[Rfam]
RNA sequence: GGGUGUUCGCCCCCGAUAAGGGACGGGCAGGACUUCGUGCUGGUCGGGCCGCCAGCA
Numbered sequence: 001g002g003g004u005g006u007u008c009g010c011c012c013c014c015g016a017u018a019a020g021g022g023a024c025g026g027g028c029a030g031g032a033c034u035u036c037g038u039g040c041u042g043g044u045c046g047g048g049c050c051g052c053c054a055g056c057a
Base pairs, nucleotide, nucleotide: 005028006027007026008025009024011022012021038057039056040055041054042053043052044051
Background
nhaA-I RNA: a 57-nucleotide RNA sequence from Sphingobium wenxiniae. The organism belongs to Sphingobium wenxiniae, within Bacteria. About the family: Acidobacteria, Alphaproteobacteria, Betaproteobacteria and Gammaproteobacteria, Verrucomicrobia, cand. division NC10.